This 440-nucleotide part of an RNA from Chlamydia felis belongs to the Rfam family "Bacterial large subunit ribosomal RNA".

RNA sequence: CUCUCCGAAAUAACUUUAGGGUUAGCCUCGGAUAUUAAGCUUUUGGGGGUAGAGCACUGAAUUCUAGCGGGGGCCUACCGGCUUACCAACGGAAAUCAAACUCCGAAUACCAAAAGCGAGUCCGGGAGAUAGACAGCGGGGGCUAAGCUUCGUUGUCGAGAGGGGAACAGCCCAGACCGCCGAUUAAGGUCCCAAAUUUUAUGCUAAGUGAGUAAGGAAGUGGUGAUUCUAAGACAGUUGGAAUGUUGGCUUAGAGGCAGCAAUCAUUUAAAGAGUGCGUAACAGCUCACCAAUCGAGAAUCAUCGCGCCAAUAAUAAUCGGGGCUCAAGCAUAAAACCGACAUCGCGGGUGUAUAUUUAUAUAUACCGCGGUAGGAGAGCGUAGCAUUCAGCAGUGAAGGUAUACCGUAAGGAGUGCUGGAGCGGAUGCUAGUGAAGAU
Numbered sequence: 001c002u003c004u005c006c007g008a009a010a011u012a013a014c015u016u017u018a019g020g021g022u023u024a025g026c027c028u029c030g031g032a033u034a035u036u037a038a039g040c041u042u043u044u045g046g047g048g049g050u051a052g053a054g055c056a057c058u059g060a061a062u063u064c065u066a067g068c069g070g071g072g073g074c075c076u077a078c079c080g081g082c083u084u085a086c087c088a089a090c091g092g093a094a095a096u097c098a099a100a101c102u103c104c105g106a107a108u109a110c111c112a113a114a115a116g117c118g119a120g121u122c123c124g125g126g127a128g129a130u131a132g133a134c135a136g137c138g139g140g141g142g143c144u145a146a147g148c149u150u151c152g153u154u155g156u157c158g159a160g161a162g163g164g165g166a167a168c169a170g171c172c173c174a175g176a177c178c179g180c181c182g183a184u185u186a187a188g189g190u191c192c193c194a195a196a197u198u199u200u201a202u203g204c205u206a207a208g209u210g211a212g213u214a215a216g217g218a219a220g221u222g223g224u225g226a227u228u229c230u231a232a233g234a235c236a237g238u239u240g241g242a243a244u245g246u247u248g249g250c251u252u253a254g255a256g257g258c259a260g261c262a263a264u265c266a267u268u269u270a271a272a273g274a275g276u277g278c279g280u281a282a283c284a285g286c287u288c289a290c291c292a293a294u295c296g297a298g299a300a301u302c303a304u305c306g307c308g309c310c311a312a313u314a315a316u317a318a319u320c321g322g323g324g325c326u327c328a329a330g331c332a333u334a335a336a337a338c339c340g341a342c343a344u345c346g347c348g349g350g351u352g353u354a355u356a357u358u359u360a361u362a363u364a365u366a367c368c369g370c371g372g373u374a375g376g377a378g379a380g381c382g383u384a385g386c387a388u389u390c391a392g393c394a395g396u397g398a399a400g401g402u403a404u405a406c407c408g409u410a411a412g413g414a415g416u417g418c419u420g421g422a423g424c425g426g427a428u429g430c431u432a433g434u435g436a437a438g439a440u
Stems, first nucleotide, its partner, number of pairs: 001380006011024005026128001027126007036119001039117008052104001053102002058098003062094004069087002071084005132157010162173003177349004182345003188339003197336001199335006216310002220307010237294005243267003249261002268272001273288001277286002350370002352367006381435001383432007392424002400419005406413002
The base pairs follow the family's consensus structure, which is taken from published work.
Rfam 15.1 lists 51,934 matches to the family in 10,816 species.